[Rfam]
RNA sequence: UGCUGUCGCGGUGACUGGCGUACCCGGGAGUGAACCCGGAGGGAGCCGCGAAGACGUAACCCCAAACGCGAUGCCGCCCGCCUGGGCAUCCGGU
Numbered sequence: 001u002g003c004u005g006u007c008g009c010g011g012u013g014a015c016u017g018g019c020g021u022a023c024c025c026g027g028g029a030g031u032g033a034a035c036c037c038g039g040a041g042g043g044a045g046c047c048g049c050g051a052a053g054a055c056g057u058a059a060c061c062c063c064a065a066a067c068g069c070g071a072u073g074c075c076g077c078c079c080g081c082c083u084g085g086g087c088a089u090c091c092g093g094u
Stems, first nucleotide, its partner, number of pairs: 004053001006051007015042002017082004025038004071089005
RNA: ZMP/ZTP riboswitch aptamer (pfl RNA motif)